The family of this 103-nucleotide RNA from Cellulomonas pakistanensis is "SAM (S-adenosyl methionine) riboswitch aptamer".
[Rfam]
RNA sequence: GGUCACGAGUCCCAGCGUCAAGCCCCGGCUGGCUGGGCAGCAACCCCACGUCACGGCGGGUGCUCCGGGAGAUGACCUGGCCGUCGGCCGGCUCGCGCCGCUC
Numbered sequence: 001g002g003u004c005a006c007g008a009g010u011c012c013c014a015g016c017g018u019c020a021a022g023c024c025c026c027g028g029c030u031g032g033c034u035g036g037g038c039a040g041c042a043a044c045c046c047c048a049c050g051u052c053a054c055g056g057c058g059g060g061u062g063c064u065c066c067g068g069g070a071g072a073u074g075a076c077c078u079g080g081c082c083g084u085c086g087g088c089c090g091g092c093u094c095g096c097g098c099c100g101c102u103c
Base pairs, nucleotide, nucleotide: 001077002076003075004074009038011037012036013035014034015033016032021030022029039064040063041062044060045059046058049055080092081091082090083089